[Rfam]
RNA sequence: CUUCUCUAAGGGCAAACCUUCCGCGAGGGAGGGACGCAAAGCGACAGCACUGCCACUGCAGUGGGCUGCGCCACUGAG
Numbered sequence: 001c002u003u004c005u006c007u008a009a010g011g012g013c014a015a016a017c018c019u020u021c022c023g024c025g026a027g028g029g030a031g032g033g034a035c036g037c038a039a040a041g042c043g044a045c046a047g048c049a050c051u052g053c054c055a056c057u058g059c060a061g062u063g064g065g066c067u068g069c070g071c072c073a074c075u076g077a078g
Base pairs, nucleotide, nucleotide: 012037013036017032018031019030020029021028022027041071042070043069045068046067047066048063049062050061051060052059053058

Notes
This 78-nucleotide RNA from Ferrimonas marina belongs to the Rfam family "c-di-GMP-I riboswitch aptamer". The match comes from Rfam's covariance-model search (55 bits).